[Rfam]
RNA sequence: UUGCCCUUGUGUUACCCAUUCAUUUUUUAAAGUGAUGAAUGUGGCGUCAAACAGGGCAGAAAUUAAACUCCAUGCUAUCCAAGGUGCUUUGGACUUUUAUUUCCAUGUCCACAGCACAGGUCUGCAUAGAGACAAUA
Numbered sequence: 001u002u003g004c005c006c007u008u009g010u011g012u013u014a015c016c017c018a019u020u021c022a023u024u025u026u027u028u029a030a031a032g033u034g035a036u037g038a039a040u041g042u043g044g045c046g047u048c049a050a051a052c053a054g055g056g057c058a059g060a061a062a063u064u065a066a067a068c069u070c071c072a073u074g075c076u077a078u079c080c081a082a083g084g085u086g087c088u089u090u091g092g093a094c095u096u097u098u099a100u101u102u103c104c105a106u107g108u109c110c111a112c113a114g115c116a117c118a119g120g121u122c123u124g125c126a127u128a129g130a131g132a133c134a135a136u137a
Stems, first nucleotide, its partner, number of pairs: 002058006010049002016043001017041005084117004091110004

Small nucleolar RNA psi18S-1377: a 137-nucleotide RNA from Leptobrachium leishanense. Rfam's curators write: psi18S-1377 is a member of the H/ACA class of snoRNA. This family is responsible for guiding the modification of uridines 1377 and 1279 to pseudouridine in Drosophila 18S rRNA. A search with the family's covariance model found it, with a score of 51 bits. Taxonomically the source falls in Leptobrachium (Eukaryota, Eumetazoa, Bilateria, Teleostomi). The family has 15 seed sequences and 113 matches in Rfam 15.1. It is annotated as an H/ACA-box small nucleolar RNA.